Rfam assigns this 100-nucleotide sequence from Tsukamurella paurometabola to the family "mraW RNA". The base pairs follow the family's consensus structure, which is taken from published work. Taxonomically the source falls in Tsukamurella paurometabola (Bacteria, Bacillati, Actinomycetes, Mycobacteriales). It is annotated as a cis-regulatory element.

RNA sequence: CGGACGAGGUGGACCGAGGCCUGCGCCCGAACGGCCCUGACGUACUUCCCCAACGCCAGGUACGGAUCGGGCGGGGACCCCGAUUCACCGGUCCGGCACU
Numbered sequence: 001c002g003g004a005c006g007a008g009g010u011g012g013a014c015c016g017a018g019g020c021c022u023g024c025g026c027c028c029g030a031a032c033g034g035c036c037c038u039g040a041c042g043u044a045c046u047u048c049c050c051c052a053a054c055g056c057c058a059g060g061u062a063c064g065g066a067u068c069g070g071g072c073g074g075g076g077a078c079c080c081c082g083a084u085u086c087a088c089c090g091g092u093c094c095g096g097c098a099c100u
Stems, first nucleotide, its partner, number of pairs: 010087004015082002018079002021076002024073007032064002036060004041055003
Dot-bracket structure: .........((((.((.((.((.(((((((.((..((((.(((.........))).))))..))..))))))).)).)).)).)))).............